[Rfam]
RNA sequence: AAAAACUAAAGGAUUAACGUAAGACCUUAAUUAGUUUUU
Numbered sequence: 001a002a003a004a005a006c007u008a009a010a011g012g013a014u015u016a017a018c019g020u021a022a023g024a025c026c027u028u029a030a031u032u033a034g035u036u037u038u039u
Stems, first nucleotide, its partner, number of pairs: 001039006009028004
Rfam assigns this 39-nucleotide sequence to the family "S4-Flavobacteria ribosomal protein leader".
It is annotated as a cis-regulatory leader.
The family's consensus secondary structure is taken from published work.
For this family Rfam cites "Discovery of 20 novel ribosomal leader candidates in bacteria and archaea" (Eckert and Weinberg, BMC Microbiol, 2020).
Clan: Ribosomal Protein S4 Leader clan.